[Rfam]
RNA sequence: CUUGAUCAGAGUUUCUGGACUUUCAGAUCAUCCACGGGAGGGUGCGCCCACUUUCACGCCCCCUCACCAAAGCU
Numbered sequence: 001c002u003u004g005a006u007c008a009g010a011g012u013u014u015c016u017g018g019a020c021u022u023u024c025a026g027a028u029c030a031u032c033c034a035c036g037g038g039a040g041g042g043u044g045c046g047c048c049c050a051c052u053u054u055c056a057c058g059c060c061c062c063c064u065c066a067c068c069a070a071a072g073c074u
Base pairs, nucleotide, nucleotide: 003030004029005028006027007026008023009022010021038055039054040053041052042051043050044049
Rfam assigns this 74-nucleotide RNA sequence from Mycobacterium ulcerans to the family "Actinobacteria sRNA Ms_AS-8".
A reference for the family is Li et al. (2013), "Identification of small RNAs in Mycobacterium smegmatis using heterologous Hfq", RNA.